[Rfam]
RNA sequence: AAGACCUUUAAGUUAAUCCAGAGAGAUUAACAAGGAUCGGUGAUUAUAAUAGAAGAGGGUAUAACUAUACCUUCAUAUUAUAGGAUAAAUUCACAAAAUUUCCUUGUCGGUUUUUCUGGCAAGGAAAUUUUUUAU
Numbered sequence: 001a002a003g004a005c006c007u008u009u010a011a012g013u014u015a016a017u018c019c020a021g022a023g024a025g026a027u028u029a030a031c032a033a034g035g036a037u038c039g040g041u042g043a044u045u046a047u048a049a050u051a052g053a054a055g056a057g058g059g060u061a062u063a064a065c066u067a068u069a070c071c072u073u074c075a076u077a078u079u080a081u082a083g084g085a086u087a088a089a090u091u092c093a094c095a096a097a098a099u100u101u102c103c104u105u106g107u108c109g110g111u112u113u114u115u116c117u118g119g120c121a122a123g124g125a126a127a128u129u130u131u132u133u134a135u
Stems, first nucleotide, its partner, number of pairs: 003037001005035004013030006051078001053076001055074008096130014
Rfam assigns this 135-nucleotide RNA from Orenia marismortui to the family "PyrR binding site". It scores 63 bits against the family's covariance model. A reference for the family is Bonner et al. (2001), "Molecular recognition of pyr mRNA by the Bacillus subtilis attenuation regulatory protein PyrR", Nucleic Acids Res. About the family: This family represents the PyrR binding site and terminator structure.